[Rfam]
RNA sequence: CGAGUGAUUCAUGGCUAAGGAACUCGGCAAAAUGGCCUCGUAACUUCGGGAGAAGAGGCGCCCCACUCCGGUGGGGCCGCAGUGAAAAGGCCCAGGCGACUGUUUAUCAAAAGCACAGGACUAUGCAAAAUCGAAAGAUGAAGUAUAUGGUCUGACACCUGCCCGGUGCUGGAAGGUUAAAAGGAGUAGUUAUCUUCGGAGAAGCUAUGAAUUGAAGCCCCAGUAAACGGCGGCCGUAACUAUAACGGUCCUAAGGUAGCGAAAUUCCUUGUCGGGUAAGUUCCGACCUGCACGAAUGGUGUAACGAUCUGGGCACUGUCUCAGCCAUGAGCUCG
Numbered sequence: 001c002g003a004g005u006g007a008u009u010c011a012u013g014g015c016u017a018a019g020g021a022a023c024u025c026g027g028c029a030a031a032a033u034g035g036c037c038u039c040g041u042a043a044c045u046u047c048g049g050g051a052g053a054a055g056a057g058g059c060g061c062c063c064c065a066c067u068c069c070g071g072u073g074g075g076g077c078c079g080c081a082g083u084g085a086a087a088a089g090g091c092c093c094a095g096g097c098g099a100c101u102g103u104u105u106a107u108c109a110a111a112a113g114c115a116c117a118g119g120a121c122u123a124u125g126c127a128a129a130a131u132c133g134a135a136a137g138a139u140g141a142a143g144u145a146u147a148u149g150g151u152c153u154g155a156c157a158c159c160u161g162c163c164c165g166g167u168g169c170u171g172g173a174a175g176g177u178u179a180a181a182a183g184g185a186g187u188a189g190u191u192a193u194c195u196u197c198g199g200a201g202a203a204g205c206u207a208u209g210a211a212u213u214g215a216a217g218c219c220c221c222a223g224u225a226a227a228c229g230g231c232g233g234c235c236g237u238a239a240c241u242a243u244a245a246c247g248g249u250c251c252u253a254a255g256g257u258a259g260c261g262a263a264a265u266u267c268c269u270u271g272u273c274g275g276g277u278a279a280g281u282u283c284c285g286a287c288c289u290g291c292a293c294g295a296a297u298g299g300u301g302u303a304a305c306g307a308u309c310u311g312g313g314c315a316c317u318g319u320c321u322c323a324g325c326c327a328u329g330a331g332c333u334c335g
Base pairs, nucleotide, nucleotide: 001335002334003333004332009330010329011328012327013326014325015324016323018321019320020319035059036058037057038056039055044049060077061076062075063074064073065072066071078082090314091313092312093311094310095309096308097306098305101115102114103113118153119152120151121150122149123148124147125146126143130139131138132137156301157300158299159298161231162230163229166228167227168224169223170222171221172220175219176218177217181213182212186208187207188206189205190204193200194199232250233249234248235247236246237245251255261288271287272286273285274284275283276282
This 335-nucleotide part of an RNA from an uncultured Flavobacteriia bacterium belongs to the Rfam family "Bacterial large subunit ribosomal RNA".
The sequence is in the family's curated seed alignment.